[Rfam]
RNA sequence: CAUAAAAGAUUUAUGAACCAGGCCGGAGCGCCAGCUUCGCCACGUCGGCCGUACAUCCAGCCGGUUGCCUGGUUCCUUGCAUUGAAGCGAUGUACGGAGUCUAUAGAGC
Numbered sequence: 001c002a003u004a005a006a007a008g009a010u011u012u013a014u015g016a017a018c019c020a021g022g023c024c025g026g027a028g029c030g031c032c033a034g035c036u037u038c039g040c041c042a043c044g045u046c047g048g049c050c051g052u053a054c055a056u057c058c059a060g061c062c063g064g065u066u067g068c069c070u071g072g073u074u075c076c077u078u079g080c081a082u083u084g085a086a087g088c089g090a091u092g093u094a095c096g097g098a099g100u101c102u103a104u105a106g107a108g109c
Base pairs, nucleotide, nucleotide: 008101009100010099011098012097015075016074017073018072019071020070021069022068023067024039025038026037027036028035029034046063047062048061078094080092081091082090

iscR stability element: a 109-nucleotide RNA from Pseudescherichia vulneris. Rfam classes the family as a cis-regulatory element. The base pairs follow the family's consensus structure, which is taken from published work.